[Rfam]
RNA sequence: GUAUAAUGAUGAUAACCAUGCGUGUCAGCUGACUCUGUAACCCUCUGCUGUCUUGUUGCUGUGGUCGGCGUUUUGUUGGCCAGAGUUUUCAUCACAGCAGAGCUGCAGAGACGUGAUCAUAUUUCACUACUUCUGAAUAC
Numbered sequence: 001g002u003a004u005a006a007u008g009a010u011g012a013u014a015a016c017c018a019u020g021c022g023u024g025u026c027a028g029c030u031g032a033c034u035c036u037g038u039a040a041c042c043c044u045c046u047g048c049u050g051u052c053u054u055g056u057u058g059c060u061g062u063g064g065u066c067g068g069c070g071u072u073u074u075g076u077u078g079g080c081c082a083g084a085g086u087u088u089u090c091a092u093c094a095c096a097g098c099a100g101a102g103c104u105g106c107a108g109a110g111a112c113g114u115g116a117u118c119a120u121a122u123u124u125c126a127c128u129a130c131u132u133c134u135g136a137a138u139a140c
Stems, first nucleotide, its partner, number of pairs: 001140004043102009

Overview:
The family of this 140-nucleotide RNA sequence from Gasterosteus aculeatus is "Small nucleolar RNA SNORD10". Lineage of the source: Eukaryota > Deuterostomia > Euteleostomi > Neopterygii > Gasterosteus. Rfam links the family to the GO terms nucleolus and RNA processing.